[Rfam]
RNA sequence: AUUUUUCAAAGGACAUACCUUAAUUUAAAAAU
Numbered sequence: 001a002u003u004u005u006u007c008a009a010a011g012g013a014c015a016u017a018c019c020u021u022a023a024u025u026u027a028a029a030a031a032u
Stems, first nucleotide, its partner, number of pairs: 001032006008026001009021004
Shown here is a 32-nucleotide sequence from Eschrichtius robustus, a member of the family "S4-Flavobacteria ribosomal protein leader". A search with the family's covariance model found it, with a score of 35 bits. A reference for the family is Eckert and Weinberg (2020), "Discovery of 20 novel ribosomal leader candidates in bacteria and archaea", BMC Microbiol. Rfam classes the family as a cis-regulatory leader. The source organism's lineage runs through Eukaryota, Craniata, Teleostomi, Mysticeti and Eschrichtius.